RNA: ASpks TB sRNA
Organism: Actinomadura meyerae
RNA sequence: UUUGAUCGAGCCGAGCCACAGGGGUGUGUCGCGGUCCUGUCCGUAGGCGGUGAGGAGUGCCUGGGCCUC
Numbered sequence: 001u002u003u004g005a006u007c008g009a010g011c012c013g014a015g016c017c018a019c020a021g022g023g024g025u026g027u028g029u030c031g032c033g034g035u036c037c038u039g040u041c042c043g044u045a046g047g048c049g050g051u052g053a054g055g056a057g058u059g060c061c062u063g064g065g066c067c068u069c
Stems, first nucleotide, its partner, number of pairs: 014025001016023002029064002032059002037054002041050003